[Rfam]
RNA sequence: GGCUGUAAUGGCCCAACGGGGAAAGCUCUCGCAAUUCUCGUCCGGACUGAUCCAAACCCAGUUCGAACCCCCCAGCUGGCGCCCAGCACGAAUGCCGCGGUGGUCGUCCACUCGCUUGGGCAACCAGCGAUGCUGCGUGCGGCCCUAAGCAAUGAAGGUGAUACUUGAGGGAGGCUUCACUCUGCAGAGGCACCUUCACCGUCGCAUGGCGUGCUGGAUUACGAUCGCUGGGGGCUUGGGUUAGUCGGACGAGGUGGAGAUGACGACUUCUUUUU
Dot-bracket structure: (((.......)))....(((((......((.(.(.((((.(((.(((((((((((.(...((....)).((.((((.(.((.((((((((.((((.((((.(.((((((..(((((.((....))))))).)..)...)))).)(...)...(((((((....(((....(((......)))....)))..))))))))))).))))..))))))))....)).).)))).))).)))))))))))))).))))).).)).......)))))...
The family of this 275-nucleotide RNA from Verticillium longisporum is "Fungal signal recognition particle RNA". A search with the family's covariance model found it, with a score of 151 bits. Rfam links the family to the GO terms signal recognition particle, endoplasmic reticulum targeting, signal recognition particle, plasma membrane targeting and SRP-dependent cotranslational protein targeting to membrane, signal sequence recognition.